RNA sequence: AAAGUGGCCUAUGCAACAGCCAUGGACUGGUUCAUUGCAGUCUGCUAUGCUUUU
Numbered sequence: 001a002a003a004g005u006g007g008c009c010u011a012u013g014c015a016a017c018a019g020c021c022a023u024g025g026a027c028u029g030g031u032u033c034a035u036u037g038c039a040g041u042c043u044g045c046u047a048u049g050c051u052u053u054u
Stems, first nucleotide, its partner, number of pairs: 001054003006051003010047002013045002016041002019038002022035005
A member of the RNA family "Editing element of GABA-3 exon 9", 54 nucleotides long. Rfam classes the family as a cis-regulatory element. The base pairs follow the family's consensus structure, which is taken from published work.